Shown here is a 175-nucleotide sequence from Limosilactobacillus frumenti, a member of the family "Group II catalytic intron D1-D4-3". The literature on the family includes a 2003 paper in Crit Rev Biochem Mol Biol by Lehmann and Schmidt, "Group II introns: structure and catalytic versatility of large natural ribozymes".

RNA sequence: UCCACCGUGAGGUGGAAUCUGAAGGAAGUCUAAGGCAAAGUACUGCAUCGAUGAACAAGAAGUAGCUAUAAGGCUGGAAUUAACUGGAUAAGGCUGCUAGACAAGUUGAAGUCCAAUACUACUCGAAGUUGGUCUCAGUAAAGCUAACGAUGACAUGGUACGAAAGCUAAUAUUC
Number, nucleotide and partner (000 for none) at each position: 001u016002c015003c014004a013005c012006c011007g000008u000009g000010a000011g006012g005013u004014g003015g002016a001017a000018u000019c000020u000021g000022a000023a000024g000025g000026a000027a000028g175029u000030c000031u172032a171033a000034g000035g167036c166037a000038a000039a000040g161041u160042a159043c158044u157045g156046c152047a151048u150049c149050g148051a000052u000053g000054a000055a000056c000057a000058a000059g000060a000061a000062g000063u146064a145065g144066c143067u142068a000069u000070a000071a000072g000073g139074c138075u137076g000077g135078a000079a133080u132081u131082a130083a129084c000085u000086g114087g113088a112089u111090a000091a000092g107093g106094c105095u104096g000097c000098u000099a000100g000101a000102c000103a000104a095105g094106u093107u092108g000109a000110a000111g089112u088113c087114c086115a000116a000117u000118a000119c000120u000121a000122c000123u000124c000125g000126a000127a000128g000129u083130u082131g081132g080133u079134c000135u077136c000137a075138g074139u073140a000141a000142a067143g066144c065145u064146a063147a000148c050149g049150a048151u047152g046153a000154c000155a000156u045157g044158g043159u042160a041161c040162g000163a000164a000165a000166g036167c035168u000169a000170a000171u032172a031173u000174u000175c028
The pairing is the family consensus, mapped onto this sequence. Group II introns are found in rRNA, tRNA and mRNA of organelles in fungi, plants and protists, and also in mRNA in bacteria.